[Rfam]
This 62-nucleotide RNA from Orycteropus afer belongs to the Rfam family "Selenocysteine insertion sequence 1". A search with the family's covariance model found it, with a score of 35 bits. For this family Rfam cites "A survey of metazoan selenocysteine insertion sequences" (Lambert et al., Biochimie, 2002). The incorporation of selenocysteine into a protein sequence is directed by an in-frame UGA codon (usually a stop codon) within the coding region of the mRNA. Selenoprotein mRNAs contain a conserved secondary structure in the 3' UTR that is required for the distinction of UGA stop from UGA selenocysteine. The selenocysteine insertion sequence (SECIS) is around 60 nt in length and adopts a hairpin structure which is sufficiently well-defined and conserved to act as a computational screen for selenoprotein genes.

RNA sequence: UUGACUUAAUGAUGUGAAUGGAGUAAAGCCUUUGGGACCUUCAUUUACUGAUGGCCCAUGAC
Numbered sequence: 001u002u003g004a005c006u007u008a009a010u011g012a013u014g015u016g017a018a019u020g021g022a023g024u025a026a027a028g029c030c031u032u033u034g035g036g037a038c039c040u041u042c043a044u045u046u047a048c049u050g051a052u053g054g055c056c057c058a059u060g061a062c
Stems, first nucleotide, its partner, number of pairs: 002061001004059001014048010029036002